[Rfam]
Mycobacterium sRNA Ms_AS-1: a 101-nucleotide sequence from Planobispora rosea. It is annotated as a small RNA. The literature on the family includes a 2013 paper in RNA by Li et al., "Identification of small RNAs in Mycobacterium smegmatis using heterologous Hfq". Lineage of the source: Bacteria > Bacillati > Actinomycetes > Streptosporangiales > Planobispora.

RNA sequence: GGCGGGUUCGAGAUGACCAGGUCCACCUGGCCGUCGAGCUCGGGAAGGGCGUCCGCGAGGUCCUCGGGGUGCAGGUGCACCCGGCCCUGGCCGUGUUCCAG
Numbered sequence: 001g002g003c004g005g006g007u008u009c010g011a012g013a014u015g016a017c018c019a020g021g022u023c024c025a026c027c028u029g030g031c032c033g034u035c036g037a038g039c040u041c042g043g044g045a046a047g048g049g050c051g052u053c054c055g056c057g058a059g060g061u062c063c064u065c066g067g068g069g070u071g072c073a074g075g076u077g078c079a080c081c082c083g084g085c086c087c088u089g090g091c092c093g094u095g096u097u098c099c100a101g
Stems, first nucleotide, its partner, number of pairs: 006039006014033002018029004043054003082093004